[Rfam]
RNA sequence: GUCGCAGUGGCUCAGUUGGAUAGAGCAACGGUCUUCUAAACCGUAGGUCGUGAGUUCGAAUCUCACCUGCGACA
Numbered sequence: 001g002u003c004g005c006a007g008u009g010g011c012u013c014a015g016u017u018g019g020a021u022a023g024a025g026c027a028a029c030g031g032u033c034u035u036c037u038a039a040a041c042c043g044u045a046g047g048u049c050g051u052g053a054g055u056u057c058g059a060a061u062c063u064c065a066c067c068u069g070c071g072a073c074a
Base pairs, nucleotide, nucleotide: 001073002072003071004070005069006068007067010026011025012024013023028044029043030042031041032040050066051065052064053063054062